[Rfam]
RNA sequence: UGGAGUCAGGUAAUGAUGAUCUGGUUGGACUAGAGUCUCUGAGCUUUUCUCUGAGGAACUUUGAAACCACCUGAUCCACUCA
Numbered sequence: 001u002g003g004a005g006u007c008a009g010g011u012a013a014u015g016a017u018g019a020u021c022u023g024g025u026u027g028g029a030c031u032a033g034a035g036u037c038u039c040u041g042a043g044c045u046u047u048u049c050u051c052u053g054a055g056g057a058a059c060u061u062u063g064a065a066a067c068c069a070c071c072u073g074a075u076c077c078a079c080u081c082a
Stems, first nucleotide, its partner, number of pairs: 003081004009077002019075003023071003027067001032060002036056004041051003